[Rfam]
RNA sequence: GGGAAGGCAUGUGUCCCGGUGGAUGCCCUGGUCUUCAAAAUCAGUGGCAGGCGGCGCAGAGCCGGCUGCGGUGGGUUCGACUCCCACGCCUUCCC
Numbered sequence: 001g002g003g004a005a006g007g008c009a010u011g012u013g014u015c016c017c018g019g020u021g022g023a024u025g026c027c028c029u030g031g032u033c034u035u036c037a038a039a040a041u042c043a044g045u046g047g048c049a050g051g052c053g054g055c056g057c058a059g060a061g062c063c064g065g066c067u068g069c070g071g072u073g074g075g076u077u078c079g080a081c082u083c084c085c086a087c088g089c090c091u092u093c094c095c
Stems, first nucleotide, its partner, number of pairs: 001095008011026006028044005047069004072086004

The record is a 95-nucleotide RNA from Litorilinea aerophila, which matches "Selenocysteine transfer RNA" in Rfam.
Pairs were carried over by alignment from the consensus structure, which is taken from published work.
Rfam links the family to the GO term triplet codon-amino acid adaptor activity.
The source organism's lineage runs through Bacteria, Bacillati, Chloroflexota, Caldilineaceae and Litorilinea.